[Rfam]
RNA sequence: CAAUCCCUGCGUGACUGGCGAUAGGGUUCCGAAAUAGCGGCGAUAGCGGUAGCAAUCUGCCCGCAAUGAGGGACUCAAGGUGGAACGACCCACCGUGAAGCGCAGGGUGCCGUUUUGCCGUUCGCCUGGGCAGCCUGA
Dot-bracket structure: ....((((((((..(.[[[[[..........................................................((((......))))...)..)))))))).......(((((..]]]]]..))))).....
Numbered sequence: 001c002a003a004u005c006c007c008u009g010c011g012u013g014a015c016u017g018g019c020g021a022u023a024g025g026g027u028u029c030c031g032a033a034a035u036a037g038c039g040g041c042g043a044u045a046g047c048g049g050u051a052g053c054a055a056u057c058u059g060c061c062c063g064c065a066a067u068g069a070g071g072g073a074c075u076c077a078a079g080g081u082g083g084a085a086c087g088a089c090c091c092a093c094c095g096u097g098a099a100g101c102g103c104a105g106g107g108u109g110c111c112g113u114u115u116u117g118c119c120g121u122u123c124g125c126c127u128g129g130g131c132a133g134c135c136u137g138a
Stems, first nucleotide, its partner, number of pairs: 005107008015097001017126005080093004115133005

This 138-nucleotide RNA sequence from Paraburkholderia acidiphila belongs to the Rfam family "ZMP/ZTP riboswitch aptamer (pfl RNA motif)". Rfam 15.1 lists 3,295 matches to the family in 2,545 species. It scores 59 bits against the family's covariance model. NCBI's taxonomy places the organism under Bacteria, Pseudomonadati, Burkholderiales, Burkholderiaceae, Paraburkholderia.